Source information: Small nucleolar RNA snoR111: a 131-nucleotide RNA sequence from Glycine max. It is annotated as an H/ACA-box small nucleolar RNA. The match comes from Rfam's covariance-model search (89 bits). Rfam links the family to the GO terms nucleolus and RNA processing.
[Rfam]
RNA sequence: AUGAGAGUGACGAGACUGUUGAAAGUGUCUCUGCCAUCGUUUGAACAUUGAGGUAUAACAAACCUAUUGGGCGAGUCAUCGUUUCGGUCGCCCUUUCUGUGAUUGGCGAAUCGAUUGUUCCUCGUCUACAU
Numbered sequence: 001a002u003g004a005g006a007g008u009g010a011c012g013a014g015a016c017u018g019u020u021g022a023a024a025g026u027g028u029c030u031c032u033g034c035c036a037u038c039g040u041u042u043g044a045a046c047a048u049u050g051a052g053g054u055a056u057a058a059c060a061a062a063c064c065u066a067u068u069g070g071g072c073g074a075g076u077c078a079u080c081g082u083u084u085c086g087g088u089c090g091c092c093c094u095u096u097c098u099g100u101g102a103u104u105g106g107c108g109a110a111u112c113g114a115u116u117g118u119u120c121c122u123c124g125u126c127u128a129c130a131u
Stems, first nucleotide, its partner, number of pairs: 007037003012031005069127002072124004078115004088109005095102002